[Rfam]
RNA sequence: CUGGGUUAUGGGGACAUGUAUCCUCAGACCUGGCUGGGUAUGAUGGUUGGGGCUCUUUGUGCUUUAGCUGGCGUGCUGACCAUUGCCAUGCCUGUACCCGUUAUUGUCAACAAU
Dot-bracket structure: .(.(...((((.(((..((((...............((((........((...........))..........))))................))))..))).))))...).).
The family of this 114-nucleotide RNA from Electrophorus electricus is "Potassium channel RNA editing signal".
From the family's description: This family represents a group of sequences related to the human potassium channel Kv1.1 hairpin element which directs the efficient modification of an adenosine to inosine by an adenosine deaminase acting on RNA (ADAR).
For this family Rfam cites "Control of human potassium channel inactivation by editing of a small mRNA hairpin" (Bhalla et al., Nat Struct Mol Biol, 2004).
Lineage of the source: Eukaryota > Bilateria > Chordata > Actinopteri > Electrophorus.